Shown here is a 97-nucleotide RNA sequence from Phycicoccus elongatus, a member of the family "Bacterial small signal recognition particle RNA". The family's RNA type in Rfam is non-coding RNA gene. Its Rfam clan is "SRP clan". Lineage of the source: Bacteria > Bacillati > Actinomycetota > Actinomycetes > Phycicoccus elongatus. The family's consensus secondary structure is taken from published work. Rfam's curators write: The signal recognition particle (SRP) is a universally conserved ribonucleoprotein involved in the co-translational targeting of proteins to membranes. A search with the family's covariance model found it, with a score of 65 bits.
RNA sequence: CUCGGCACCCCGCGUGGUGGUACCUCACUGAACCCCCCCAGGGCAGGAAUGCAGCAAGGGCAGGUGAGCUCUUCCAGGUACGCGGGGUGUCCUCGUU
Numbered sequence: 001c002u003c004g005g006c007a008c009c010c011c012g013c014g015u016g017g018u019g020g021u022a023c024c025u026c027a028c029u030g031a032a033c034c035c036c037c038c039c040a041g042g043g044c045a046g047g048a049a050u051g052c053a054g055c056a057a058g059g060g061c062a063g064g065u066g067a068g069c070u071c072u073u074c075c076a077g078g079u080a081c082g083c084g085g086g087g088u089g090u091c092c093u094c095g096u097u
Stems, first nucleotide, its partner, number of pairs: 004091011015078001018076003022072001024068006035060003043052003